[Rfam]
RNA sequence: UAUGAGCCUCCACGCGGCGCUAUGUCACCCAACUCCCCCAGGGCAGGAAUGCAGCAAGGGUAAGUGGCCUCUGACGGGUGCGUGGAGGUUUUUCUUU
Number, nucleotide and partner (000 for none) at each position: 001u000002a000003u000004g091005a090006g089007c088008c087009u086010c085011c084012a083013c082014g081015c078016g000017g000018c076019g075020c000021u073022a072023u000024g068025u067026c066027a065028c064029c000030c000031a000032a000033c000034u000035c060036c059037c058038c000039c000040a000041g000042g000043g052044c051045a050046g000047g000048a000049a000050u045051g044052c043053a000054g000055c000056a000057a000058g037059g036060g035061u000062a000063a000064g028065u027066g026067g025068c024069c000070u000071c000072u022073g021074a000075c019076g018077g000078g015079u000080g000081c014082g013083u012084g011085g010086a009087g008088g007089u006090u005091u004092u000093u000094c000095u000096u000097u000
Background: This 97-nucleotide RNA sequence from Bifidobacterium scardovii belongs to the Rfam family "Bacterial small signal recognition particle RNA". For this family Rfam cites "SRPDB: Signal Recognition Particle Database" (Rosenblad et al., Nucleic Acids Res, 2003). The family's RNA type in Rfam is non-coding RNA gene.